RNA sequence: AAACUGAAGAGUUUGAUCCUGGCUCAGAUUGAACGCUAGCGGAAUGCUUUACACAUGCAAGUCGAACGGCAGCACGGACUUCGGUUUGGUGGCGAGUGGCGGACGGGUGAGUAAUAUAUCGGAACGUGCCCAGUAGUGGGGGAUAACUACGCGAAAGCGUAGCUAAUACCGCAUAUUCCCUAAGGGGGAAAGCGGGGGAUCUUCGGACCUCGCGCUAUUGGAUCGGCCGAUACCGGAUUAGCUAGUUGGUGAGGUAAUAGCUCACCAAGGCAACGAUCCGUAGCUGGUCUGAGAGGACGACCAGCCACACUGGGACUGAGACACGGCCCAGACUCCUACGGGAGGCAGCAGUGGGGAAUUUUGGACAAUGGGGGGAACCCUGAUCCAGCCAUUCCGCGUGUGCGAUGAAGGCCUUAGGGUUGUAAAGCACUUUUGGCAGGGAAGAAACAGUGUUGGAUAAUACCCAGCAUGAAUGACGGUACCUGCAGAAUAAGCACCGGCUAACUACGUGCCAGCAGCCGCGGUAAUACGUAGGGUGCAAGCGUUAAUCGGAAUUACUG
Numbered sequence: 001a002a003a004c005u006g007a008a009g010a011g012u013u014u015g016a017u018c019c020u021g022g023c024u025c026a027g028a029u030u031g032a033a034c035g036c037u038a039g040c041g042g043a044a045u046g047c048u049u050u051a052c053a054c055a056u057g058c059a060a061g062u063c064g065a066a067c068g069g070c071a072g073c074a075c076g077g078a079c080u081u082c083g084g085u086u087u088g089g090u091g092g093c094g095a096g097u098g099g100c101g102g103a104c105g106g107g108u109g110a111g112u113a114a115u116a117u118a119u120c121g122g123a124a125c126g127u128g129c130c131c132a133g134u135a136g137u138g139g140g141g142g143a144u145a146a147c148u149a150c151g152c153g154a155a156a157g158c159g160u161a162g163c164u165a166a167u168a169c170c171g172c173a174u175a176u177u178c179c180c181u182a183a184g185g186g187g188g189a190a191a192g193c194g195g196g197g198g199a200u201c202u203u204c205g206g207a208c209c210u211c212g213c214g215c216u217a218u219u220g221g222a223u224c225g226g227c228c229g230a231u232a233c234c235g236g237a238u239u240a241g242c243u244a245g246u247u248g249g250u251g252a253g254g255u256a257a258u259a260g261c262u263c264a265c266c267a268a269g270g271c272a273a274c275g276a277u278c279c280g281u282a283g284c285u286g287g288u289c290u291g292a293g294a295g296g297a298c299g300a301c302c303a304g305c306c307a308c309a310c311u312g313g314g315a316c317u318g319a320g321a322c323a324c325g326g327c328c329c330a331g332a333c334u335c336c337u338a339c340g341g342g343a344g345g346c347a348g349c350a351g352u353g354g355g356g357a358a359u360u361u362u363g364g365a366c367a368a369u370g371g372g373g374g375g376a377a378c379c380c381u382g383a384u385c386c387a388g389c390c391a392u393u394c395c396g397c398g399u400g401u402g403c404g405a406u407g408a409a410g411g412c413c414u415u416a417g418g419g420u421u422g423u424a425a426a427g428c429a430c431u432u433u434u435g436g437c438a439g440g441g442a443a444g445a446a447a448c449a450g451u452g453u454u455g456g457a458u459a460a461u462a463c464c465c466a467g468c469a470u471g472a473a474u475g476a477c478g479g480u481a482c483c484u485g486c487a488g489a490a491u492a493a494g495c496a497c498c499g500g501c502u503a504a505c506u507a508c509g510u511g512c513c514a515g516c517a518g519c520c521g522c523g524g525u526a527a528u529a530c531g532u533a534g535g536g537u538g539c540a541a542g543c544g545u546u547a548a549u550c551g552g553a554a555u556u557a558c559u560g
Stems, first nucleotide, its partner, number of pairs: 009025005027550004032546006039397006046389001047355001052353003056350003061100003066097002069093002075088005107308003117232006125225002130221007138172001140170002147162006178187003192213006234280003241271003246268008283305004287298004310331005333344004361387001363386003369382005400430004410421004436486005444477001450470006494539005505534005515522002
Dot-bracket structure: ........(((((.......))))).((((.((((((.((((((.((....(((.(((..(((..((.((....(((((....)))))...))..)))))......(((.......((((((..((...(((((((.(.((.....((((((....))))))......)).).....(((....)))....((((((..........)))))).)))))))..)).)))))).(((....(((..((((((((.......)))))))))))......)))..((((((((....))))...))))))).(((((............))))).((((....))))...)))))).).....(.(((...(((((....))))).)))).)..))))))..((((......((((....)))).....)))).....(((((...(.....((((((.........))))))......)....))))).......(((((......(((((.....((....)).......)))))))))).))))))))))..........

Record summary:
The record is a 560-nucleotide part of an RNA from Candidatus Kinetoplastidibacterium blastocrithidiae, which matches "Bacterial small subunit ribosomal RNA" in Rfam.